Small nucleolar RNA U54: a 90-nucleotide RNA sequence from Asparagus officinalis.
U54 is a C/D box small nucleolar RNA, which acts as a methylation guide for 18S ribosomal RNA in plants.
The family's RNA type in Rfam is C/D-box small nucleolar RNA.
RNA sequence: GGCUUCAUGAUUGCAGCGAAUACCAUUUGACAAUAUACGCUAUUCUGAGCAUGUUCAGUAUAAACUUGAUGAUGAAAUAGUAUGAGAGCU
Numbered sequence: 001g002g003c004u005u006c007a008u009g010a011u012u013g014c015a016g017c018g019a020a021u022a023c024c025a026u027u028u029g030a031c032a033a034u035a036u037a038c039g040c041u042a043u044u045c046u047g048a049g050c051a052u053g054u055u056c057a058g059u060a061u062a063a064a065c066u067u068g069a070u071g072a073u074g075a076a077a078u079a080g081u082a083u084g085a086g087a088g089c090u
Base pairs, nucleotide, nucleotide: 001090002089003088004087005086
Dot-bracket structure: (((((................................................................................)))))
Description:
The source organism's lineage runs through Eukaryota, Magnoliopsida, Asparagaceae, Asparagoideae and Asparagus. Its family is annotated with RNA processing and nucleolus in the Gene Ontology. The base pairs follow the family's consensus structure, which was predicted with PFOLD.